This 104-nucleotide RNA sequence from Paenibacillus oryzae belongs to the Rfam family "TPP riboswitch aptamer (THI element)". The organism belongs to Paenibacillus, within Bacteria.
[Rfam]
RNA sequence: GAAAUCCACUAGGGGCGCCGCAAGGCUGAGAUAAAGCGUUAAGCUUUGGUCCCUUUGAACCUGAUCUGGGUCAUGCCAGCGUAGGAAAGUGGGACAAUCGGACA
Number, nucleotide and partner (000 for none) at each position: 001g000002a000003a000004a000005u000006c092007c091008a090009c089010u088011a054012g053013g052014g051015g000016c048017g026018c025019c024020g000021c000022a000023a000024g019025g018026c017027u000028g000029a000030g000031a000032u000033a047034a046035a045036g044037c043038g000039u000040u000041a000042a000043g037044c036045u035046u034047u033048g016049g000050u000051c014052c013053c012054u011055u000056u000057g000058a000059a000060c085061c084062u083063g082064a000065u000066c079067u078068g077069g076070g000071u000072c000073a000074u000075g000076c069077c068078a067079g066080c000081g000082u063083a062084g061085g060086a000087a000088a010089g009090u008091g007092g006093g000094a000095c000096a000097a000098u000099c000100g000101g000102a000103c000104a000
It scores 82 bits against the family's covariance model. Pairs were carried over by alignment from the consensus structure, which is taken from published work.